[Rfam]
The family of this 105-nucleotide RNA sequence from Aegilops tauschii is "Small nucleolar RNA Z107/R87". It scores 96 bits against the family's covariance model. The organism belongs to Aegilops tauschii, within Eukaryota. Rfam links the family to the GO terms nucleolus and RNA processing.

RNA sequence: GAUGGCAGUGGCGGUUUGCAAAUAUUCAAGCUCAACAGACCAAAUCACAGGCUUUUCUCUCAGGAGUCGAUAUGUGUGCUGAUUAUCCCGCUGAACCAAGCCAUC
Numbered sequence: 001g002a003u004g005g006c007a008g009u010g011g012c013g014g015u016u017u018g019c020a021a022a023u024a025u026u027c028a029a030g031c032u033c034a035a036c037a038g039a040c041c042a043a044a045u046c047a048c049a050g051g052c053u054u055u056u057c058u059c060u061c062a063g064g065a066g067u068c069g070a071u072a073u074g075u076g077u078g079c080u081g082a083u084u085a086u087c088c089c090g091c092u093g094a095a096c097c098a099a100g101c102c103a104u105c
Base pairs, nucleotide, nucleotide: 001105002104003103004102005101006100